[Rfam]
RNA sequence: CACAAUAGAAUGGCUAUAAGGGCGGUCGGCUAAUCCUCCGGGAAAGGAGGAUGAUGCCAUGUCGGUAUUCGAAGCACUUACGCUUAUGAUUGCGUUCGCGACUCUCGUAUUACUGAUUAAGAAAGAGAAAUAGACCGCCCACGGAAAGGAUCGGUCUAUUCACUGGUCUAGCUUUAUCCGAAAGCCACCGCCCUUAGAGCGGCAUUUGUGCAAGGAGUCGUGUUCCAGCACGGCUC
Numbered sequence: 001c002a003c004a005a006u007a008g009a010a011u012g013g014c015u016a017u018a019a020g021g022g023c024g025g026u027c028g029g030c031u032a033a034u035c036c037u038c039c040g041g042g043a044a045a046g047g048a049g050g051a052u053g054a055u056g057c058c059a060u061g062u063c064g065g066u067a068u069u070c071g072a073a074g075c076a077c078u079u080a081c082g083c084u085u086a087u088g089a090u091u092g093c094g095u096u097c098g099c100g101a102c103u104c105u106c107g108u109a110u111u112a113c114u115g116a117u118u119a120a121g122a123a124a125g126a127g128a129a130a131u132a133g134a135c136c137g138c139c140c141a142c143g144g145a146a147a148g149g150a151u152c153g154g155u156c157u158a159u160u161c162a163c164u165g166g167u168c169u170a171g172c173u174u175u176a177u178c179c180g181a182a183a184g185c186c187a188c189c190g191c192c193c194u195u196a197g198a199g200c201g202g203c204a205u206u207u208g209u210g211c212a213a214g215g216a217g218u219c220g221u222g223u224u225c226c227a228g229c230a231c232g233g234c235u236c
Base pairs, nucleotide, nucleotide: 001210002209003208004207005206008203011187012186013185014184015183020140021139022138024135026133031054033052035050036049037048038047039046061117062116063115064114065113066112067111075088076087098108099107100106143163188202189201190200191199215236216235217234218233219232220231221230222229223228
The family of this 236-nucleotide RNA sequence from Paenibacillus prosopidis is "BsrG". Lineage of the source: Bacteria > Bacillati > Bacillota > Paenibacillaceae > Paenibacillus. Rfam links the family to the GO terms autolysis and toxin activity. By type it is a small RNA. A reference for the family is Saito et al. (2008), "Novel small RNA-encoding genes in the intergenic regions of Bacillus subtilis", Gene. Rfam's curators write: bsrE, bsrG and bsrH pair through intermolecular interactions with antisense sRNAs. They form type I toxin/antitoxin system that includes an mRNA encoding for a short, toxic peptide (bsrE, bsrG and bsrH) and an antitoxin that is comprised of an antisense RNA. bsrG encodes a 39-amino-acid toxin, and the 180 nucleotide antisense sRNA called SR4 acts as the antitoxin (they overlap by 123 nucleotides).